This 117-nucleotide RNA sequence from Streptomyces sp. NWU339 belongs to the Rfam family "Actinobacteria sRNA Ms_IGR-7". A search with the family's covariance model found it, with a score of 55 bits. A reference for the family is Li et al. (2013), "Identification of small RNAs in Mycobacterium smegmatis using heterologous Hfq", RNA. Taxonomically the source falls in Streptomyces (Bacteria, Bacillati, Actinomycetes, Kitasatosporales).
RNA sequence: ACGAGGUGCCUUGCUGGUUGGGCCGGAUAGAAGUGUAGGAACUCCCAUCUUCCCAGCUCAGCGGGCACCUCUCUGCGUCAGCCUCGUCCCGCCUCGAUCACCGAUCGGUGGAUCCAG
Numbered sequence: 001a002c003g004a005g006g007u008g009c010c011u012u013g014c015u016g017g018u019u020g021g022g023c024c025g026g027a028u029a030g031a032a033g034u035g036u037a038g039g040a041a042c043u044c045c046c047a048u049c050u051u052c053c054c055a056g057c058u059c060a061g062c063g064g065g066c067a068c069c070u071c072u073c074u075g076c077g078u079c080a081g082c083c084u085c086g087u088c089c090c091g092c093c094u095c096g097a098u099c100a101c102c103g104a105u106c107g108g109u110g111g112a113u114c115c116a117g
Stems, first nucleotide, its partner, number of pairs: 003071009015060003019056001021054002025050004030045001032043003100113001102111001104109001
Rfam 15.1 lists 463 matches to the family in 194 species.